[Rfam]
Shown here is a 371-nucleotide RNA from Ardeotis kori, a member of the family "ncRNA Repressor of NFAT (nuclear factor of activated T cells)". The family has 24 seed sequences and 522 matches in Rfam 15.1. It is annotated as a non-coding RNA gene. NCBI's taxonomy places the organism under Eukaryota, Teleostomi, Sauropsida, Archosauria, Ardeotis.
RNA sequence: CGCACAGCUCUGCCUCAGACCCCUCACACACCCCUCACGGGCUGUACUAAUCCAUAGAAGAAAAUCUCUUCUAAUGAGGAGUGAUAUAGUUAUGAACUCUCCAGAGCCAUAAUUAGAGCAAACUAAUUGAAGUUGUGUUUUGACACACUUUCCAAAUUCACGGGUACUGCAUGACAUAUUCACAACACUGCUGCUGCACAGGCAUGGCGACAGCAGAAUCAUUAGGCUAAUAACGCUUAUUUGCAUUCUUAUCAUGCCAGCAGCGUGCCGUUAAACACUGCUUCAGCCAGUGCUCGCUUACUCCCAAAGUUUCCACUGGAAGAUAUUAACGGUAAUUAUUAGUACUUUAGUGAAAUCUCUAAUGCUGGGAA
Numbered sequence: 001c002g003c004a005c006a007g008c009u010c011u012g013c014c015u016c017a018g019a020c021c022c023c024u025c026a027c028a029c030a031c032c033c034c035u036c037a038c039g040g041g042c043u044g045u046a047c048u049a050a051u052c053c054a055u056a057g058a059a060g061a062a063a064a065u066c067u068c069u070u071c072u073a074a075u076g077a078g079g080a081g082u083g084a085u086a087u088a089g090u091u092a093u094g095a096a097c098u099c100u101c102c103a104g105a106g107c108c109a110u111a112a113u114u115a116g117a118g119c120a121a122a123c124u125a126a127u128u129g130a131a132g133u134u135g136u137g138u139u140u141u142g143a144c145a146c147a148c149u150u151u152c153c154a155a156a157u158u159c160a161c162g163g164g165u166a167c168u169g170c171a172u173g174a175c176a177u178a179u180u181c182a183c184a185a186c187a188c189u190g191c192u193g194c195u196g197c198a199c200a201g202g203c204a205u206g207g208c209g210a211c212a213g214c215a216g217a218a219u220c221a222u223u224a225g226g227c228u229a230a231u232a233a234c235g236c237u238u239a240u241u242u243g244c245a246u247u248c249u250u251a252u253c254a255u256g257c258c259a260g261c262a263g264c265g266u267g268c269c270g271u272u273a274a275a276c277a278c279u280g281c282u283u284c285a286g287c288c289a290g291u292g293c294u295c296g297c298u299u300a301c302u303c304c305c306a307a308a309g310u311u312u313c314c315a316c317u318g319g320a321a322g323a324u325a326u327u328a329a330c331g332g333u334a335a336u337u338a339u340u341a342g343u344a345c346u347u348u349a350g351u352g353a354a355a356u357c358u359c360u361a362a363u364g365c366u367g368g369g370a371a
Stems, first nucleotide, its partner, number of pairs: 045364002048361002051354001053352003058347003066081006086339008097106003116295005129151004134147005163269002167263001192209005213257003226244002229241004